[Rfam]
RNA: Small nucleolar RNA SNORD83
Organism: Electrophorus electricus
RNA sequence: GCCACAUGAUGCUACAUAGAUUGCAUUAGCACUCUGUGCAAAGAUGACCAACUAUCUAUCACCCAAGACUGAUGGCU
Numbered sequence: 001g002c003c004a005c006a007u008g009a010u011g012c013u014a015c016a017u018a019g020a021u022u023g024c025a026u027u028a029g030c031a032c033u034c035u036g037u038g039c040a041a042a043g044a045u046g047a048c049c050a051a052c053u054a055u056c057u058a059u060c061a062c063c064c065a066a067g068a069c070u071g072a073u074g075g076c077u
Stems, first nucleotide, its partner, number of pairs: 001076004029039004